[Rfam]
RNA sequence: UUAACUCAAAUUUGUAUGGAGUUUAUGUGUUUGCCUAUGUUUGACGCUAGGGAGCGCUGUUCCAACUGCUUACAAAUUUGAAUUA
Number, nucleotide and partner (000 for none) at each position: 001u000002u000003a000004a000005c000006u000007c000008a079009a078010a077011u076012u075013u074014g073015u072016a071017u000018g069019g000020a067021g066022u065023u064024u000025a000026u000027g060028u059029g058030u000031u000032u000033g000034c052035c051036u050037a000038u000039g047040u046041u000042u000043g000044a000045c000046g040047c039048u000049a000050g036051g035052g034053a000054g000055c000056g000057c000058u029059g028060u027061u000062c000063c000064a023065a022066c021067u020068g000069c018070u000071u016072a015073c014074a013075a012076a011077u010078u009079u008080g000081a000082a000083u000084u000085a000
The family of this 85-nucleotide RNA sequence from Bombyx mori is "mir-2807 microRNA precursor family". The base pairs follow the family's consensus structure, which was predicted with RNAalifold. Rfam links the family to the GO terms miRNA-mediated post-transcriptional gene silencing and RISC complex. For this family Rfam cites "MicroRNAs of Bombyx mori identified by Solexa sequencing" (Liu et al., BMC Genomics, 2010).